[Rfam]
RNA: A. fumigatus snoRNA Afu_263
RNA sequence: UUCCAUGAUGAUCCAAACAUAUAAGCAUAGUUCAACUGAGGUCUUCGGACUCUAUGAACGAAAACCUUGUCCCAUCUUUCAUUUUUUCUGAAG
Numbered sequence: 001u002u003c004c005a006u007g008a009u010g011a012u013c014c015a016a017a018c019a020u021a022u023a024a025g026c027a028u029a030g031u032u033c034a035a036c037u038g039a040g041g042u043c044u045u046c047g048g049a050c051u052c053u054a055u056g057a058a059c060g061a062a063a064a065c066c067u068u069g070u071c072c073c074a075u076c077u078u079u080c081a082u083u084u085u086u087u088c089u090g091a092a093g
Base pairs, nucleotide, nucleotide: 006017009015010014030059031058032057033056034055040052041050042049043048